The record is a 132-nucleotide RNA from Nocardia bovistercoris, which matches "ALIL pseudoknot" in Rfam. It scores 67 bits against the family's covariance model. The base pairs follow the family's consensus structure, which is taken from published work. Its family is annotated with positive regulation of translational frameshifting in the Gene Ontology. A reference for the family is Mazauric et al. (2008), "Apical loop-internal loop RNA pseudoknots: a new type of stimulator of -1 translational frameshifting in bacteria", J Biol Chem. By type it is a cis-regulatory element.
RNA sequence: CGCGUUUUUCGCGGCGGCGGAGGUCGACCGCCGACUGCGGUGAUCGUCGACUACAUCGACGCUCACAAGGACCGGUUCGGGGUCGACCCGAUCGCCCGUGUGCUCACCGAGCACGGUGUCGCGAUCGCCCCG
Numbered sequence: 001c002g003c004g005u006u007u008u009u010c011g012c013g014g015c016g017g018c019g020g021a022g023g024u025c026g027a028c029c030g031c032c033g034a035c036u037g038c039g040g041u042g043a044u045c046g047u048c049g050a051c052u053a054c055a056u057c058g059a060c061g062c063u064c065a066c067a068a069g070g071a072c073c074g075g076u077u078c079g080g081g082g083u084c085g086a087c088c089c090g091a092u093c094g095c096c097c098g099u100g101u102g103c104u105c106a107c108c109g110a111g112c113a114c115g116g117u118g119u120c121g122c123g124a125u126c127g128c129c130c131c132g
Stems, first nucleotide, its partner, number of pairs: 016032005078132005089127002092124003